[Rfam]
RNA sequence: AUUGAUGGCUGUGCGGUUGCACAAAAUCUAUAGGUUUUUGUGAGGAAAGUCCGAGCUCCAUAAAAACAUAGUGCUGGGUAAUACCCAGCAGAAGUAAUUCUAGGGAAAGUGCCACAGAGAAUAUACCGCCAAAAGAUUUUGGUAAGGGUGAAAAGGUAAGGUAAGAGCUUACCGGUAGUUUGGUAAUAAAUUACGCAUGGUAAACCCCACUAGGAGCAAGACCAAAUAGAAGCAAUACAUAACUGGAAUAAUGUUAUAAUAGAUGUUUUUAUCUAGUUGCUUGGGUAGGUCGCUUGAGGUAAAUAGUAAUAUUUAUCCCAGAUAAAUAACCGUAAUAUUUUACAGAACUCGGCUUAUAGGCCAUCAAUAUAA
Numbered sequence: 001a002u003u004g005a006u007g008g009c010u011g012u013g014c015g016g017u018u019g020c021a022c023a024a025a026a027u028c029u030a031u032a033g034g035u036u037u038u039u040g041u042g043a044g045g046a047a048a049g050u051c052c053g054a055g056c057u058c059c060a061u062a063a064a065a066a067c068a069u070a071g072u073g074c075u076g077g078g079u080a081a082u083a084c085c086c087a088g089c090a091g092a093a094g095u096a097a098u099u100c101u102a103g104g105g106a107a108a109g110u111g112c113c114a115c116a117g118a119g120a121a122u123a124u125a126c127c128g129c130c131a132a133a134a135g136a137u138u139u140u141g142g143u144a145a146g147g148g149u150g151a152a153a154a155g156g157u158a159a160g161g162u163a164a165g166a167g168c169u170u171a172c173c174g175g176u177a178g179u180u181u182g183g184u185a186a187u188a189a190a191u192u193a194c195g196c197a198u199g200g201u202a203a204a205c206c207c208c209a210c211u212a213g214g215a216g217c218a219a220g221a222c223c224a225a226a227u228a229g230a231a232g233c234a235a236u237a238c239a240u241a242a243c244u245g246g247a248a249u250a251a252u253g254u255u256a257u258a259a260u261a262g263a264u265g266u267u268u269u270u271a272u273c274u275a276g277u278u279g280c281u282u283g284g285g286u287a288g289g290u291c292g293c294u295u296g297a298g299g300u301a302a303a304u305a306g307u308a309a310u311a312u313u314u315a316u317c318c319c320a321g322a323u324a325a326a327u328a329a330c331c332g333u334a335a336u337a338u339u340u341u342a343c344a345g346a347a348c349u350c351g352g353c354u355u356a357u358a359g360g361c362c363a364u365c366a367a368u369a370u371a372a
Stems, first nucleotide, its partner, number of pairs: 001368010011357001012334007020042007028034001047355003051352005056216004064269003069212005074088005089103001090101004104207002109205002111201003126147002128143006155173006174196001175194008220291004230282006260275005298317008
This 372-nucleotide sequence from Candidatus Orientia mediorientalis belongs to the Rfam family "Bacterial RNase P class A".
Clan: RNaseP clan.